The family of this 65-nucleotide sequence from Pectobacterium brasiliense is "int-alpA RNA". By type it is a small RNA. Rfam 15.1 lists 577 matches to the family in 491 species. The organism belongs to Pectobacterium brasiliense, within Bacteria. The base pairs follow the family's consensus structure, which is taken from published work. Acidobacteria (1 example), Planctomycetes (1 example), Proteobacteria.
[Rfam]
RNA sequence: UGCGUGGCUAGACAGGCCAGUCGAAAAGCGGCAUCGUCACCGCCUGCCAUGCAUUUAUCGAUGAC
Numbered sequence: 001u002g003c004g005u006g007g008c009u010a011g012a013c014a015g016g017c018c019a020g021u022c023g024a025a026a027a028g029c030g031g032c033a034u035c036g037u038c039a040c041c042g043c044c045u046g047c048c049a050u051g052c053a054u055u056u057a058u059c060g061a062u063g064a065c
Base pairs, nucleotide, nucleotide: 001053002052003051004050005049006048007047008046011022012021013020028043029042030041031040034064035063036062037061038060